RNA sequence: GACUUUUUUUUCGAUAUAAAACACUCAUGUUGGUAAAAAGAUUUGAGCCUUUU
Numbered sequence: 001g002a003c004u005u006u007u008u009u010u011u012c013g014a015u016a017u018a019a020a021a022c023a024c025u026c027a028u029g030u031u032g033g034u035a036a037a038a039a040g041a042u043u044u045g046a047g048c049c050u051u052u053u
Base pairs, nucleotide, nucleotide: 011033012032013031014030015029016028017027

The family of this 53-nucleotide RNA sequence from Citrus x clementina is "Plastid-atpF group II-D1 intron". The literature on the family includes a 2023 paper in Plant Commun by Richter et al., "Retrograde signaling in plants: A critical review focusing on the GUN pathway and beyond". The match comes from Rfam's covariance-model search (59 bits). Rfam's curators write: Plastid atpF is a non-coding RNA (ncRNA) recognised in plastids. It has been reported in the intron group II-D1 region of ATP synthase (atpF) genes. The source organism's lineage runs through Eukaryota, Magnoliopsida, eudicotyledons, malvids and Citrus. Rfam 15.1 lists 1,372 matches to the family in 227 species. Rfam links the family to the GO term Group II intron splicing.